[Rfam]
RNA: mir-515 microRNA precursor family
Organism: Macaca mulatta
RNA sequence: UCAGGCUGUGACCCUCCAGAGGGAAGCACUUUCUGUUGUCUGAAAGAAAGCAAAGCGCUCCCCUUUAGAGGAUUACGGUUUGA
Numbered sequence: 001u002c003a004g005g006c007u008g009u010g011a012c013c014c015u016c017c018a019g020a021g022g023g024a025a026g027c028a029c030u031u032u033c034u035g036u037u038g039u040c041u042g043a044a045a046g047a048a049a050g051c052a053a054a055g056c057g058c059u060c061c062c063c064u065u066u067a068g069a070g071g072a073u074u075a076c077g078g079u080u081u082g083a
Stems, first nucleotide, its partner, number of pairs: 001083003005079007014070003018066006025059003029055004036050002